[Rfam]
RNA sequence: AGACUUACUUGGCAGGUUAGACACCAUGAUCAGGCAGGUGAUUUUCUCAGAGCAAGGCUCAUUCCUUGCACUCUGGGUGUGCUGAUUCCUGUGAUCUCAAAUGCAGAAAACUGAACUGCAUAAUCUGUGGUAGUAGGGAACUGUUCUCAUGCUCGCUCUCUC
Number, nucleotide and partner (000 for none) at each position: 001a000002g000003a000004c000005u000006u000007a000008c000009u000010u000011g000012g119013c118014a117015g116016g048017u000018u000019a045020g044021a043022c000023a042024c000025c040026a039027u038028g000029a000030u000031c000032a000033g000034g000035c000036a000037g000038g027039u026040g025041a000042u023043u021044u020045u019046c000047u000048c016049a090050g089051a000052g087053c000054a086055a000056g083057g082058c081059u000060c079061a078062u077063u076064c075065c000066u000067u000068g000069c000070a000071c000072u000073c000074u000075g064076g063077g062078u061079g060080u000081g058082c057083u056084g000085a000086u054087u052088c000089c050090u049091g000092u114093g000094a112095u110096c106097u105098c000099a000100a000101a000102u000103g000104c000105a097106g096107a000108a000109a000110a095111c000112u094113g000114a092115a000116c015117u014118g013119c012120a000121u000122a000123a000124u000125c000126u000127g000128u000129g000130g000131u000132a000133g000134u000135a161136g160137g159138g158139a157140a000141c000142u000143g154144u000145u000146c151147u000148c000149a000150u000151g146152c000153u000154c143155g000156c000157u139158c138159u137160c136161u135162c000